[Rfam]
RNA sequence: GUUGCUUGAGCGGAAGGUGGUUCCAGUACGAGAGGAACGAGCCGUCGGUGUCUCUGGUCUACCAGUUGUCUGAUAAGGCAUCGCUGGGCAGCUACGCACUAUGAUAAUAAAGGCUGAAAGCAUCUAAGCCUGAGGUAUUCCGUGAAAAUAAGCAGCUUUUUUAGGGUAUGAGUAGAAGACUUGUUUGAUGGGAUUGGGAUGUAAGCUUCGAGAUUCUUUGUUUUCGAGUUGUUAAGUCCGCAAUUUCCAACACCCGAUUUU
Numbered sequence: 001g002u003u004g005c006u007u008g009a010g011c012g013g014a015a016g017g018u019g020g021u022u023c024c025a026g027u028a029c030g031a032g033a034g035g036a037a038c039g040a041g042c043c044g045u046c047g048g049u050g051u052c053u054c055u056g057g058u059c060u061a062c063c064a065g066u067u068g069u070c071u072g073a074u075a076a077g078g079c080a081u082c083g084c085u086g087g088g089c090a091g092c093u094a095c096g097c098a099c100u101a102u103g104a105u106a107a108u109a110a111a112g113g114c115u116g117a118a119a120g121c122a123u124c125u126a127a128g129c130c131u132g133a134g135g136u137a138u139u140c141c142g143u144g145a146a147a148a149u150a151a152g153c154a155g156c157u158u159u160u161u162u163a164g165g166g167u168a169u170g171a172g173u174a175g176a177a178g179a180c181u182u183g184u185u186u187g188a189u190g191g192g193a194u195u196g197g198g199a200u201g202u203a204a205g206c207u208u209c210g211a212g213a214u215u216c217u218u219u220g221u222u223u224u225c226g227a228g229u230u231g232u233u234a235a236g237u238c239c240g241c242a243a244u245u246u247c248c249a250a251c252a253c254c255c256g257a258u259u260u261u
Stems, first nucleotide, its partner, number of pairs: 001156007010143004016046008047100005055094003062087005067080005104138003111131005164255004168184005189249003192245005197239003205232002209228001212225001
RNA: Archaeal large subunit ribosomal RNA, nucleotides 2777 to 3037